[Rfam]
RNA: MIR2118 microRNA precursor family
Organism: Triticum aestivum
RNA sequence: GAUAUGAAGAGGAAGAAAGAGAGGGCUUAAGAGCAGUGGGAGUGAUAACAUAGAGGAAAGCCUAACUUACUGGUUCUUCACCUCUAGUCUUGAGGUGGCAAUUCGGUUUGGUAUUUCCUUAUGUGUCUCAUUCCUAUCGUUCUUAGUCACUCCUUCCUCUUCCUUUUUGUU
Numbered sequence: 001g002a003u004a005u006g007a008a009g010a011g012g013a014a015g016a017a018a019g020a021g022a023g024g025g026c027u028u029a030a031g032a033g034c035a036g037u038g039g040g041a042g043u044g045a046u047a048a049c050a051u052a053g054a055g056g057a058a059a060g061c062c063u064a065a066c067u068u069a070c071u072g073g074u075u076c077u078u079c080a081c082c083u084c085u086a087g088u089c090u091u092g093a094g095g096u097g098g099c100a101a102u103u104c105g106g107u108u109u110g111g112u113a114u115u116u117c118c119u120u121a122u123g124u125g126u127c128u129c130a131u132u133c134c135u136a137u138c139g140u141u142c143u144u145a146g147u148c149a150c151u152c153c154u155u156c157c158u159c160u161u162c163c164u165u166u167u168u169g170u171u
Base pairs, nucleotide, nucleotide: 009162010161011160012159013158015156016155017154021152022151023150027146028145029144030143031142032141033140034139037136038135039134040133041132042131043130044129045128047126049123050122051121053119055118056117057116058115059114